RNA sequence: GAUAUGGCCUGAAAGGAAUGAAUCUUCUUGAAAGAAACAAUGGUAACGUUGAAGUAUGAGAGAAGUGGACUAAGGUUAUAUCAUCCGUCUUGAAACACGG
Numbered sequence: 001g002a003u004a005u006g007g008c009c010u011g012a013a014a015g016g017a018a019u020g021a022a023u024c025u026u027c028u029u030g031a032a033a034g035a036a037a038c039a040a041u042g043g044u045a046a047c048g049u050u051g052a053a054g055u056a057u058g059a060g061a062g063a064a065g066u067g068g069a070c071u072a073a074g075g076u077u078a079u080a081u082c083a084u085c086c087g088u089c090u091u092g093a094a095a096c097a098c099g100g
Base pairs, nucleotide, nucleotide: 001082002081003080004079005078006077007076008075009074010073015071016070024065025064026063027062028061029060033057038051039050040049041048042047085100086099087098088097

The family of this 100-nucleotide part of an RNA from Candidatus Methanobinarius endosymbioticus is "Archaeal large subunit ribosomal RNA". The base pairs follow the family's consensus structure, which is taken from published work. Taxonomically the source falls in Candidatus Methanobinarius (Archaea, Methanobacteriota, Methanobacteria, Methanobacteriaceae). The match comes from Rfam's covariance-model search (2888 bits).